RNA sequence: AUGCCUUAAUGAGUAAGGAAAACAAUGAUUCAAGGUGACACCCAAAUUCUGACUGCUAAUGUGAGACAAAUUUUUGAAUGGGUAAAGUGUGCCCUUAAGGUGACUUGUCUACUUUGCAAGAUGCCUUGGAAUCGCCAUCUGCCCG
Numbered sequence: 001a002u003g004c005c006u007u008a009a010u011g012a013g014u015a016a017g018g019a020a021a022a023c024a025a026u027g028a029u030u031c032a033a034g035g036u037g038a039c040a041c042c043c044a045a046a047u048u049c050u051g052a053c054u055g056c057u058a059a060u061g062u063g064a065g066a067c068a069a070a071u072u073u074u075u076g077a078a079u080g081g082g083u084a085a086a087g088u089g090u091g092c093c094c095u096u097a098a099g100g101u102g103a104c105u106u107g108u109c110u111a112c113u114u115u116g117c118a119a120g121a122u123g124c125c126u127u128g129g130a131a132u133c134g135c136c137a138u139c140u141g142c143c144c145g
Base pairs, nucleotide, nucleotide: 004018005017006016007015008014027048028047029046030045034041049065050064052062053061079145080144081143082142083141086140087139091135092134095129096128098126099125100124101123102122104120105119106118107117108116
A member of the RNA family "U12 minor spliceosomal RNA" from Lynx pardinus, 145 nucleotides long.